[Rfam]
RNA: Glycine riboswitch aptamer
Organism: Bacillus benzoevorans
RNA sequence: AUGAAGGUUGCAGGAGAGCGUUUAUUUUAUAAACCGCCGAAGGAGCAAACUCCAAAAAGACCCUUUGGAGUGAAUCUCUCAGGUAUAAGGACUGUAACUGGACA
Number, nucleotide and partner (000 for none) at each position: 001a000002u000003g000004a000005a000006g099007g098008u097009u096010g095011c094012a093013g092014g000015a000016g000017a000018g000019c000020g034021u033022u032023u031024a000025u000026u000027u000028u000029a000030u000031a023032a022033a021034c020035c000036g084037c083038c082039g080040a079041a000042g000043g078044a077045g076046c000047a000048a000049a071050c070051u069052c068053c067054a066055a065056a064057a000058a000059g000060a000061c000062c000063c000064u056065u055066u054067g053068g052069a051070g050071u049072g000073a000074a000075u000076c045077u044078c043079u040080c039081a000082g038083g037084u036085a000086u000087a000088a000089g000090g000091a000092c013093u012094g011095u010096a009097a008098c007099u006100g000101g000102a000103c000104a000